RNA sequence: GUGUUUUUCAUGGUAUUAGAUUUAAGGUUAACAAUGAAGAUUGGCUGUCCGUGACGGAUAGCCUUUUUUUACC
Numbered sequence: 001g002u003g004u005u006u007u008u009c010a011u012g013g014u015a016u017u018a019g020a021u022u023u024a025a026g027g028u029u030a031a032c033a034a035u036g037a038a039g040a041u042u043g044g045c046u047g048u049c050c051g052u053g054a055c056g057g058a059u060a061g062c063c064u065u066u067u068u069u070u071a072c073c
Stems, first nucleotide, its partner, number of pairs: 043063007